[Rfam]
RNA sequence: GCCGAGCUCAGUCACGUGAGCUUGUGAUCCAAGUGGGGGCAUUAAGGUGGUGGAACAUGGACACGGUCAACUGGGUCGGAUUUGUGAUGGUUGAAUGCCUGGCUUGCCCUAUCCAAGUUGGGAGCUUGACCCUAGUGACCUAGGUGUAGGCUUGGGUUGAUUGGGUCCUAAAGUGGUGGGGACUGCGUGAGGCUGGUUUCACAGAGCAACGAACACUGCCCGCUCUUGUCAGUGGAAGGAUAACGAUUCGGUGCCAUAGGGAUCCAACGAUGCCCGACUGGUUUGUGCUCCUAUUGAACCAUUACCUUU
Numbered sequence: 001g002c003c004g005a006g007c008u009c010a011g012u013c014a015c016g017u018g019a020g021c022u023u024g025u026g027a028u029c030c031a032a033g034u035g036g037g038g039g040c041a042u043u044a045a046g047g048u049g050g051u052g053g054a055a056c057a058u059g060g061a062c063a064c065g066g067u068c069a070a071c072u073g074g075g076u077c078g079g080a081u082u083u084g085u086g087a088u089g090g091u092u093g094a095a096u097g098c099c100u101g102g103c104u105u106g107c108c109c110u111a112u113c114c115a116a117g118u119u120g121g122g123a124g125c126u127u128g129a130c131c132c133u134a135g136u137g138a139c140c141u142a143g144g145u146g147u148a149g150g151c152u153u154g155g156g157u158u159g160a161u162u163g164g165g166u167c168c169u170a171a172a173g174u175g176g177u178g179g180g181g182a183c184u185g186c187g188u189g190a191g192g193c194u195g196g197u198u199u200c201a202c203a204g205a206g207c208a209a210c211g212a213a214c215a216c217u218g219c220c221c222g223c224u225c226u227u228g229u230c231a232g233u234g235g236a237a238g239g240a241u242a243a244c245g246a247u248u249c250g251g252u253g254c255c256a257u258a259g260g261g262a263u264c265c266a267a268c269g270a271u272g273c274c275c276g277a278c279u280g281g282u283u284u285g286u287g288c289u290c291c292u293a294u295u296g297a298a299c300c301a302u303u304a305c306c307u308u309u
Base pairs, nucleotide, nucleotide: 001040002039003038004023005022006021007020008019009018010017028037029036030035044308045307046306047305048304049303050302051301052300053299056296057295058293059292060291062287063286064285065284066283068281070279072277074275075274077272078265079264080263081262082261083260085258087257088256089255090254092253093252099251100250101249102248104246105245106244108239109238112236113235114234115233117230119228120227121226122225123224124223125222128167129166130165131164132163134161136159137158138157139156140155141154142153143152144151145150168173175220176219177218178217179216184213186211187210188209193204194203195202

Shown here is a 309-nucleotide RNA from Carnegiea gigantea, a member of the family "Plant signal recognition particle RNA". Rfam 15.1 lists 4,988 matches to the family in 266 species. For this family Rfam cites "Towards the structure of the mammalian signal recognition particle" (Wild et al., Curr Opin Struct Biol, 2002). Taxonomically the source falls in Carnegiea (Eukaryota, Streptophyta, Magnoliopsida, Cactineae). The base pairs follow the family's consensus structure, which is taken from published work. A search with the family's covariance model found it, with a score of 217 bits. It is annotated as a non-coding RNA gene.